[Rfam]
RNA sequence: AAGACUAUACUUUCAGGGAUCAUUUCUAUAGUUCUUGACUUGAGAAAUGUGUUUCUAAUUUGUAUGGUCUCGCUAACCACGAUGAUGAGUUGGUGAUACUCCUACCUGAGCGCGAAGCGGGUAAAGAGUGAUGAUUCAGUUCAUGGGCUCUUUACUUUUGAUGACCGUUCACUGUUUCUUUCGGGAACAGCGAGGGUGCGAGUAUGAUCAGAGUGGU
Numbered sequence: 001a002a003g004a005c006u007a008u009a010c011u012u013u014c015a016g017g018g019a020u021c022a023u024u025u026c027u028a029u030a031g032u033u034c035u036u037g038a039c040u041u042g043a044g045a046a047a048u049g050u051g052u053u054u055c056u057a058a059u060u061u062g063u064a065u066g067g068u069c070u071c072g073c074u075a076a077c078c079a080c081g082a083u084g085a086u087g088a089g090u091u092g093g094u095g096a097u098a099c100u101c102c103u104a105c106c107u108g109a110g111c112g113c114g115a116a117g118c119g120g121g122u123a124a125a126g127a128g129u130g131a132u133g134a135u136u137c138a139g140u141u142c143a144u145g146g147g148c149u150c151u152u153u154a155c156u157u158u159u160g161a162u163g164a165c166c167g168u169u170c171a172c173u174g175u176u177u178c179u180u181u182c183g184g185g186a187a188c189a190g191c192g193a194g195g196g197u198g199c200g201a202g203u204a205u206g207a208u209c210a211g212a213g214u215g216g217u
Stems, first nucleotide, its partner, number of pairs: 001041003005037001009032003015027004049065003053062001076217005096205006103198005110168003120156004126150004131144004172190008